Small nucleolar RNA Z43: a 95-nucleotide sequence from Ceratodon purpureus. By type it is a C/D-box small nucleolar RNA. Rfam 15.1 lists 859 matches to the family in 240 species. Rfam links the family to the GO terms RNA processing and nucleolus.

RNA sequence: UGACGAUGACGACAAUAUGAAAGGUCUCGUUCGGCAUAUUGGCUAACAGCCAUGCUGACCAUUCUAAAAAGAUCACCACCCAUAAUCUGAUGUCA
Numbered sequence: 001u002g003a004c005g006a007u008g009a010c011g012a013c014a015a016u017a018u019g020a021a022a023g024g025u026c027u028c029g030u031u032c033g034g035c036a037u038a039u040u041g042g043c044u045a046a047c048a049g050c051c052a053u054g055c056u057g058a059c060c061a062u063u064c065u066a067a068a069a070a071g072a073u074c075a076c077c078a079c080c081c082a083u084a085a086u087c088u089g090a091u092g093u094c095a
Base pairs, nucleotide, nucleotide: 001095002094003093004092045053